[Rfam]
RNA sequence: GCUGGGAUGAUCCUCGGUGGUCCGAGGUGCAGGCUUCAAACCUGUAGCCGACUGAUCUCGGAGCGGUUCAAUUCCGCCCUCCUGGC
Dot-bracket structure: (((((((.(..((((((....))))))((((((.......)))))).((((......)))).((((.......))))).)))))))

The record is an 86-nucleotide RNA from Taenia asiatica, which matches "Selenocysteine transfer RNA" in Rfam.
For this family Rfam cites "Eukaryotic selenocysteine tRNA has the 9/4 secondary structure" (Mizutani and Goto, FEBS Lett, 2000).
A search with the family's covariance model found it, with a score of 73 bits.